[Rfam]
RNA sequence: ACUGACAUGAGGUCGAGUAUCCUAACGGGCUUUUCGACCCCAGUCCAUUAAACUUAGAGGAGUGCUACAGUGGCCCGUAUCGCUGGCAUUAACAUUCCUGAU
Numbered sequence: 001a002c003u004g005a006c007a008u009g010a011g012g013u014c015g016a017g018u019a020u021c022c023u024a025a026c027g028g029g030c031u032u033u034u035c036g037a038c039c040c041c042a043g044u045c046c047a048u049u050a051a052a053c054u055u056a057g058a059g060g061a062g063u064g065c066u067a068c069a070g071u072g073g074c075c076c077g078u079a080u081c082g083c084u085g086g087c088a089u090u091a092a093c094a095u096u097c098c099u100g101a102u
Base pairs, nucleotide, nucleotide: 004045005044006043009041011039012038013037021086022085026077027076028075029074034101035100036099

This 102-nucleotide RNA sequence from Alteromonadales bacterium alter-6D02 belongs to the Rfam family "Alpha operon ribosome binding site".
The bacterial alpha operon ribosome binding site is surrounded by this complex pseudoknotted structure. Translation of the mRNA produces 4 ribosomal protein products, one of which (S4) acts as a translational repressor by binding to the nested pseudoknot region. The mechanism of repression is thought to involve a conformational switch in the pseudoknot region and ribosome entrapment.
By type it is a cis-regulatory element.
Taxonomically the source falls in Alteromonadales (Bacteria, Pseudomonadati, Pseudomonadota, Gammaproteobacteria).
Its family is annotated with ribosome binding in the Gene Ontology.
The literature on the family includes a 2001 paper in J Biol Chem by Schlax et al., "Translational repression of the Escherichia coli alpha operon mRNA: importance of an mRNA conformational switch and a ternary entrapment complex".
The base pairs follow the family's consensus structure, which is taken from published work.